[Rfam]
RNA sequence: UCUGUAGAGUUAAAGUGCUUACAGUGCAGGUAGUUUAGUCCAUCAUCUACUGCACUGGAGGCACUUCAAGCUCUACAUG
Numbered sequence: 001u002c003u004g005u006a007g008a009g010u011u012a013a014a015g016u017g018c019u020u021a022c023a024g025u026g027c028a029g030g031u032a033g034u035u036u037a038g039u040c041c042a043u044c045a046u047c048u049a050c051u052g053c054a055c056u057g058g059a060g061g062c063a064c065u066u067c068a069a070g071c072u073c074u075a076c077a078u079g
Base pairs, nucleotide, nucleotide: 004076005075006074007073009071010070011069013066014065015064016063017062018061019060020059022057023056024055025054026053027052029051030050031049032048033047
Source information:
The record is a 79-nucleotide sequence from Bagarius yarrelli, which matches "mir-17 microRNA precursor family" in Rfam. About the family: This family represents the microRNA (miRNA) precursor mir-17, family, which includes mir-20, mir-91, and mir-103. miRNAs are transcribed as ~70nt precursors (modelled here) and subsequently processed by the Dicer enzyme to give a ~22nt product. In this case the mature sequence comes from the 3' arm of the precursor. The extents of the hairpin precursors are not generally known and are estimated based on hairpin prediction. Lineage of the source: Eukaryota > Euteleostomi > Ostariophysi > Characiphysae > Bagarius. Pairs were carried over by alignment from the consensus structure, which was predicted with RNAalifold.